[Rfam]
Overview:
Phenylalanine leader peptide: a 130-nucleotide sequence from Vibrio xiamenensis. A reference for the family is Zurawski et al. (1978), "Nucleotide sequence of the leader region of the phenylalanine operon of Escherichia coli", Proc Natl Acad Sci U S A.
RNA sequence: GUACUCAUUCACUCUAUUCUUUUUUGAUUUCUUUUUUAUGCGCCGUGUUUAAUGGAGGCUAGGUCGUUUCAAAAAGAGCAAUCAAAAACGAAUAGAUAGAAAGCCUCCCCACAAGGGAGGCUUUUUUCAU
Numbered sequence: 001g002u003a004c005u006c007a008u009u010c011a012c013u014c015u016a017u018u019c020u021u022u023u024u025u026g027a028u029u030u031c032u033u034u035u036u037u038a039u040g041c042g043c044c045g046u047g048u049u050u051a052a053u054g055g056a057g058g059c060u061a062g063g064u065c066g067u068u069u070c071a072a073a074a075a076g077a078g079c080a081a082u083c084a085a086a087a088a089c090g091a092a093u094a095g096a097u098a099g100a101a102a103g104c105c106u107c108c109c110c111a112c113a114a115g116g117g118a119g120g121c122u123u124u125u126u127u128c129a130u
Stems, first nucleotide, its partner, number of pairs: 016093004021088009031078004036073002038069001043055003057065003100124010
Dot-bracket structure: ...............((((.(((((((((.((((.(((....(((.......))).(((...)))...)..)).)))).))))))))).))))......((((((((((.....))))))))))......